[Rfam]
RNA sequence: GACGUGUCAAAGCCUGGUAACUCCACCACCGUUGGCGUUCAGAUAUCGCCAACGGGGGAUGAGUUCCUGCUCUUAGAUGCGAU
Number, nucleotide and partner (000 for none) at each position: 001g000002a000003c081004g080005u079006g078007u077008c076009a000010a074011a073012g072013c000014c000015u000016g068017g067018u000019a065020a064021c063022u062023c061024c000025a000026c058027c057028a000029c055030c054031g053032u052033u051034g050035g049036c048037g047038u000039u000040c000041a000042g000043a000044u000045a000046u000047c037048g036049c035050c034051a033052a032053c031054g030055g029056g000057g027058g026059a000060u000061g023062a022063g021064u020065u019066c000067c017068u016069g000070c000071u000072c012073u011074u010075a000076g008077a007078u006079g005080c004081g003082a000083u000
The family of this 83-nucleotide sequence from Leptidea sinapis is "mir-2765 microRNA precursor family".